[Rfam]
RNA: Histone 3' UTR stem-loop
RNA sequence: CAAACGGCUCUUUUAAGAGCCACACACUUCACCUUGAGAGCUUUGU
Numbered sequence: 001c002a003a004a005c006g007g008c009u010c011u012u013u014u015a016a017g018a019g020c021c022a023c024a025c026a027c028u029u030c031a032c033c034u035u036g037a038g039a040g041c042u043u044u045g046u
Base pairs, nucleotide, nucleotide: 006021007020008019009018010017011016
Dot-bracket structure: .....((((((....)))))).........................